RNA sequence: UUCAGAUAUGGAGACAUGGUGCCCAAGACGAUUGCAGGAAAGAUCUUCGGUUCCAUCUGCUCACUGAGCGGUGUCCUCGUCAUUGCCCUGCCGGUCCCUGUGAUCGUUUCCAAC
Numbered sequence: 001u002u003c004a005g006a007u008a009u010g011g012a013g014a015c016a017u018g019g020u021g022c023c024c025a026a027g028a029c030g031a032u033u034g035c036a037g038g039a040a041a042g043a044u045c046u047u048c049g050g051u052u053c054c055a056u057c058u059g060c061u062c063a064c065u066g067a068g069c070g071g072u073g074u075c076c077u078c079g080u081c082a083u084u085g086c087c088c089u090g091c092c093g094g095u096c097c098c099u100g101u102g103a104u105c106g107u108u109u110c111c112a113a114c
Stems, first nucleotide, its partner, number of pairs: 002113001005110001008107004014101003018097002021095002037077002040074001050062001